[Rfam]
RNA sequence: CAUUUAUCAGUGACAGUGCUCACUAUAAAUC
Numbered sequence: 001c002a003u004u005u006a007u008c009a010g011u012g013a014c015a016g017u018g019c020u021c022a023c024u025a026u027a028a029a030u031c
Stems, first nucleotide, its partner, number of pairs: 002030006009024005014018001

The family of this 31-nucleotide RNA from Xenopus tropicalis is "Iron response element II". It is annotated as a cis-regulatory element. Pairs were carried over by alignment from the consensus structure, which is taken from published work. Rfam describes the family as follows. IRE, TFRC, SLC40A1, SDHB, SLC11A2, CDC42BPA, ACO2, ALAS2_H.SAPIENS, CDC14A, EPAS1, ALAS2, qoxD, Hao1, NDUFS1, transferrin, Aconitate. On this family, see Sanchez et al., Nat Struct Mol Biol 2007: "Iron-regulatory proteins limit hypoxia-inducible factor-2alpha expression in iron deficiency". Taxonomically the source falls in Silurana (Eukaryota, Opisthokonta, Teleostomi, Pipidae).